Shown here is a 100-nucleotide sequence from Hathewaya proteolytica, a member of the family "Purine riboswitch aptamer". The organism belongs to Hathewaya proteolytica, within Bacteria. Pairs were carried over by alignment from the consensus structure, which is taken from published work.

[Rfam]
RNA sequence: AAAUUUAAUUAAAAUCUUGCUUGUAUAAUACUGAUAAUAAGGUUCAGUAGUAUCUACCGAAUACCGUAAAUAUUCGACUAUGGGCGUGAAAUAAUAUCAC
Numbered sequence: 001a002a003a004u005u006u007a008a009u010u011a012a013a014a015u016c017u018u019g020c021u022u023g024u025a026u027a028a029u030a031c032u033g034a035u036a037a038u039a040a041g042g043u044u045c046a047g048u049a050g051u052a053u054c055u056a057c058c059g060a061a062u063a064c065c066g067u068a069a070a071u072a073u074u075c076g077a078c079u080a081u082g083g084g085c086g087u088g089a090a091a092u093a094a095u096a097u098c099a100c
Stems, first nucleotide, its partner, number of pairs: 018086008029049006058076006
Dot-bracket structure: .................((((((((...((((((.........))))))........((((((.......))))))..))))))))..............